RNA: FMN riboswitch aptamer (RFN element)
Organism: Avibacterium volantium
RNA sequence: AAGCAUUCUCAGGGCAGGGCGAAAUUCCCUACCGGUGGUAAGUGCAGCGCGCAUAAGCCCACGAGCGUUUACUUGCAAAAGUAAAGUCAGCAGAUUUGGUGAAAAUCCAAAGCCGACAGUUAAAGUCUGGAUGAAAGAGAAUAAAC
Numbered sequence: 001a002a003g004c005a006u007u008c009u010c011a012g013g014g015c016a017g018g019g020c021g022a023a024a025u026u027c028c029c030u031a032c033c034g035g036u037g038g039u040a041a042g043u044g045c046a047g048c049g050c051g052c053a054u055a056a057g058c059c060c061a062c063g064a065g066c067g068u069u070u071a072c073u074u075g076c077a078a079a080a081g082u083a084a085a086g087u088c089a090g091c092a093g094a095u096u097u098g099g100u101g102a103a104a105a106u107c108c109a110a111a112g113c114c115g116a117c118a119g120u121u122a123a124a125g126u127c128u129g130g131a132u133g134a135a136a137g138a139g140a141a142u143a144a145a146c
Stems, first nucleotide, its partner, number of pairs: 005142006017029003031126002033115002035062004057113002065091002095111005117129003
Dot-bracket structure: ....((((((......(((.......))).[[((((((..................[[))))..((.......................))...(((((.......)))))]])).(((.....]]))).......))))))....